[Rfam]
RNA sequence: UCUGUGGAGUGUUAUAUCAAAUGUGAUUAGCUUGAUAUUAUCAAGCGAAAACAGACACUAAGAAGCAGAAA
Numbered sequence: 001u002c003u004g005u006g007g008a009g010u011g012u013u014a015u016a017u018c019a020a021a022u023g024u025g026a027u028u029a030g031c032u033u034g035a036u037a038u039u040a041u042c043a044a045g046c047g048a049a050a051a052c053a054g055a056c057a058c059u060a061a062g063a064a065g066c067a068g069a070a071a
Stems, first nucleotide, its partner, number of pairs: 001069005009058005022053003030046003034042002
Rfam assigns this 71-nucleotide RNA sequence to the family "RAGATH-18 RNA". About the family: Actinobacteria, Firmicutes, Fusobacteria, Thermotogae (1 example). The sequence is in the family's curated seed alignment. Pairs were carried over by alignment from the consensus structure, which is taken from published work. By type it is a small RNA.